A member of the RNA family "FMN riboswitch aptamer (RFN element)" from Bacillus sp. SJS, 135 nucleotides long. A search with the family's covariance model found it, with a score of 118 bits. Pairs were carried over by alignment from the consensus structure, which is taken from published work. Lineage of the source: Bacteria > Bacillota > Bacilli > Caryophanales > Bacillus.
RNA sequence: AUCAUUCUUCGGGGCAGGGUGUAAUUCCCUACCGGCGGUGAUGAGGCGAAAGUCUCUAAGCCCGCGAGCCUGAUAAGGGCAGGAUCUGGUGUAAUUCCAGAGCCGACAGUAUAGUCUGGAUGGGAGAAGAUGGUG
Numbered sequence: 001a002u003c004a005u006u007c008u009u010c011g012g013g014g015c016a017g018g019g020u021g022u023a024a025u026u027c028c029c030u031a032c033c034g035g036c037g038g039u040g041a042u043g044a045g046g047c048g049a050a051a052g053u054c055u056c057u058a059a060g061c062c063c064g065c066g067a068g069c070c071u072g073a074u075a076a077g078g079g080c081a082g083g084a085u086c087u088g089g090u091g092u093a094a095u096u097c098c099a100g101a102g103c104c105g106a107c108a109g110u111a112u113a114g115u116c117u118g119g120a121u122g123g124g125a126g127a128a129g130a131u132g133g134u135g
Stems, first nucleotide, its partner, number of pairs: 003133001006130005017029003031115002033105002035065004060103002070079001085101005107118003